[Rfam]
A member of the RNA family "Mason-Pfizer monkey virus packaging signal" from Molossus molossus, 267 nucleotides long. It is annotated as a cis-regulatory element. It scores 97 bits against the family's covariance model. Rfam 15.1 lists 2,921 matches to the family in 53 species. This family represents a group of sequences that are related to the Mason-Pfizer monkey virus (MPMV) packaging signal. The packaging signal is located in the 5' UTR and is required for specific RNA encapsidation.

RNA sequence: UGGCGCCCAACAUGGGGCUCCAGCACAGGGGAUCCAGUGAAGGGCGCCAUUCAAGUGGCCGGCAGAAAGGAAAAGAAAAGAGGGAAUGACGUGGGAACCUGUUGCAUCUGCACCCCUCGGGUAAGUGAAUGGCAAUUAUGAGUCAAGCAUUGAGCCAAGAUAAGAUGUUCAUUGAAGGACUAGGAAAGGCUAUAAAGGCACAAGGAGUAAAGGUAAAAAUUAAGCAUUUGUGUCAGUAUUUUGAUUAUAUUAAAGAAGUUUGUCCUU
Numbered sequence: 001u002g003g004c005g006c007c008c009a010a011c012a013u014g015g016g017g018c019u020c021c022a023g024c025a026c027a028g029g030g031g032a033u034c035c036a037g038u039g040a041a042g043g044g045c046g047c048c049a050u051u052c053a054a055g056u057g058g059c060c061g062g063c064a065g066a067a068a069g070g071a072a073a074a075g076a077a078a079a080g081a082g083g084g085a086a087u088g089a090c091g092u093g094g095g096a097a098c099c100u101g102u103u104g105c106a107u108c109u110g111c112a113c114c115c116c117u118c119g120g121g122u123a124a125g126u127g128a129a130u131g132g133c134a135a136u137u138a139u140g141a142g143u144c145a146a147g148c149a150u151u152g153a154g155c156c157a158a159g160a161u162a163a164g165a166u167g168u169u170c171a172u173u174g175a176a177g178g179a180c181u182a183g184g185a186a187a188g189g190c191u192a193u194a195a196a197g198g199c200a201c202a203a204g205g206a207g208u209a210a211a212g213g214u215a216a217a218a219a220u221u222a223a224g225c226a227u228u229u230g231u232g233u234c235a236g237u238a239u240u241u242u243g244a245u246u247a248u249a250u251u252a253a254a255g256a257a258g259u260u261u262g263u264c265c266u267u
Stems, first nucleotide, its partner, number of pairs: 006030003013025002035044001080118003083114002091105004126145003130142001133140002151194002154190003201243005207237002211229004252267002255264002
Dot-bracket structure: .....(((....((.........))..)))....(........)...................................(((((......((((.......)))).......)).))).......(((.(..((....)).)))).....((.(((...............................)))..))......(((((.((..((((...........))))......)).)))))........((.((......)).))